[Rfam]
RNA sequence: GAGAGAUGAUGAAUGCACAUUGGUCCGUGUUUCUGAAAAUUUGUGAUUGAUAAUAUCUGUGUUAUGCUGUCUGAUCUC
Numbered sequence: 001g002a003g004a005g006a007u008g009a010u011g012a013a014u015g016c017a018c019a020u021u022g023g024u025c026c027g028u029g030u031u032u033c034u035g036a037a038a039a040u041u042u043g044u045g046a047u048u049g050a051u052a053a054u055a056u057c058u059g060u061g062u063u064a065u066g067c068u069g070u071c072u073g074a075u076c077u078c
Base pairs, nucleotide, nucleotide: 001078002077003076004075
Dot-bracket structure: ((((......................................................................))))
The family of this 78-nucleotide RNA from Ipomoea nil is "Small nucleolar RNA SNORD18". The source organism's lineage runs through Eukaryota, Spermatophyta, asterids, lamiids and Ipomoea. It is annotated as a C/D-box small nucleolar RNA. Pairs were carried over by alignment from the consensus structure, which was predicted with PFOLD. On this family, see Prislei et al., Nucleic Acids Res 1993: "Two different snoRNAs are encoded in introns of amphibian and human L1 ribosomal protein genes".